This 139-nucleotide sequence from Nomascus leucogenys belongs to the Rfam family "Small nucleolar RNA SNORA8". Clan: SNORA8 clan. By type it is an H/ACA-box small nucleolar RNA. The base pairs follow the family's consensus structure, which was predicted with RNAfold. The match comes from Rfam's covariance-model search (159 bits).
RNA sequence: UGCACUGUGUGGUAUCUGCACUCAGCAGUUUACUCCUGCUAGGGUGUUCAAAGGUCAGUGCCACAGAAACCCAGUAUCUGGCUUCAUUGGUUUUCUUGGCUUUGUGCUUGUUAAACCUGGUAUUUCUAUUGAUACAGCA
Numbered sequence: 001u002g003c004a005c006u007g008u009g010u011g012g013u014a015u016c017u018g019c020a021c022u023c024a025g026c027a028g029u030u031u032a033c034u035c036c037u038g039c040u041a042g043g044g045u046g047u048u049c050a051a052a053g054g055u056c057a058g059u060g061c062c063a064c065a066g067a068a069a070c071c072c073a074g075u076a077u078c079u080g081g082c083u084u085c086a087u088u089g090g091u092u093u094u095c096u097u098g099g100c101u102u103u104g105u106g107c108u109u110g111u112u113a114a115a116c117c118u119g120g121u122a123u124u125u126c127u128a129u130u131g132a133u134a135c136a137g138c139a
Stems, first nucleotide, its partner, number of pairs: 002061006014055004018047006024040005065127005071120004080108003084104001